[Rfam]
RNA: Nuclear RNase P
Organism: Agrocybe chaxingu
RNA sequence: ACAGAUGAAAAGCUGUGAGGCUCGCGCCGAACAGGACGAACGCUCCGUCGUCGUCCACACUUGCGAGCGGGCUAAGGUCUGAGCCUUCUAAUCAUUCUCGAUCGGUCCUAGCAGGACCCAGCUGUAACCGGCUGCAGCGGCGUAUCAGAAAUCCGACCUCCCAUGCCUCUUUUUCGUCCUUCGGGGUGGAAGGGUGCCCAAAGAUCGUCAGCCUUCGUGGUGCGCAGGAGGGUGUGGUGUGGGGGGUCUUGGAAGUCGUCGCAAUGGUUGGGUGGAGUGAGGGCCCUCUCCGAUUCGCGCCUUUGGGUGUCAGUUGGUUUGGGCGCACAACCAUCCUUUAGCUCACUUCGCAGCGCAUUUAUAUGGGUCCUGUUCGCCUUUGUGCGUAGGGACCCAGAAUGUAACUCGAUUCAGACUACUCUUCGUCUGU
Numbered sequence: 001a002c003a004g005a006u007g008a009a010a011a012g013c014u015g016u017g018a019g020g021c022u023c024g025c026g027c028c029g030a031a032c033a034g035g036a037c038g039a040a041c042g043c044u045c046c047g048u049c050g051u052c053g054u055c056c057a058c059a060c061u062u063g064c065g066a067g068c069g070g071g072c073u074a075a076g077g078u079c080u081g082a083g084c085c086u087u088c089u090a091a092u093c094a095u096u097c098u099c100g101a102u103c104g105g106u107c108c109u110a111g112c113a114g115g116a117c118c119c120a121g122c123u124g125u126a127a128c129c130g131g132c133u134g135c136a137g138c139g140g141c142g143u144a145u146c147a148g149a150a151a152u153c154c155g156a157c158c159u160c161c162c163a164u165g166c167c168u169c170u171u172u173u174u175c176g177u178c179c180u181u182c183g184g185g186g187u188g189g190a191a192g193g194g195u196g197c198c199c200a201a202a203g204a205u206c207g208u209c210a211g212c213c214u215u216c217g218u219g220g221u222g223c224g225c226a227g228g229a230g231g232g233u234g235u236g237g238u239g240u241g242g243g244g245g246g247u248c249u250u251g252g253a254a255g256u257c258g259u260c261g262c263a264a265u266g267g268u269u270g271g272g273u274g275g276a277g278u279g280a281g282g283g284c285c286c287u288c289u290c291c292g293a294u295u296c297g298c299g300c301c302u303u304u305g306g307g308u309g310u311c312a313g314u315u316g317g318u319u320u321g322g323g324c325g326c327a328c329a330a331c332c333a334u335c336c337u338u339u340a341g342c343u344c345a346c347u348u349c350g351c352a353g354c355g356c357a358u359u360u361a362u363a364u365g366g367g368u369c370c371u372g373u374u375c376g377c378c379u380u381u382g383u384g385c386g387u388a389g390g391g392a393c394c395c396a397g398a399a400u401g402u403a404a405c406u407c408g409a410u411u412c413a414g415a416c417u418a419c420u421c422u423u424c425g426u427c428u429g430u
Stems, first nucleotide, its partner, number of pairs: 001430004007424003012354007020068005034056006079414005090269004104118005119134006137262006155248013355402006
Dot-bracket structure: ((((..(((..(((((((.(((((.........((((((...........)))))).......)))))..........[[[[[......((((..........(((((.....)))))((((((....))))))..((((((............(((((((((((((....................................................................)))))))))))))........))))))...))))..............................................................................)))))))((((((....................................)))))).......]]]]].......)))..))))